[Rfam]
RNA: c-di-GMP-I riboswitch aptamer
RNA sequence: ACCUGUAAAGGGCAAACCAUCCGAAAGGGUGGGACGCAAAGCCGCUGGCCUAAGUCCCCCGCGUGGGAUAUGGCAGCAGGGUUGCCAGG
Numbered sequence: 001a002c003c004u005g006u007a008a009a010g011g012g013c014a015a016a017c018c019a020u021c022c023g024a025a026a027g028g029g030u031g032g033g034a035c036g037c038a039a040a041g042c043c044g045c046u047g048g049c050c051u052a053a054g055u056c057c058c059c060c061g062c063g064u065g066g067g068a069u070a071u072g073g074c075a076g077c078a079g080g081g082u083u084g085c086c087a088g089g
Stems, first nucleotide, its partner, number of pairs: 012037002017032006040083004045079003048074003055068004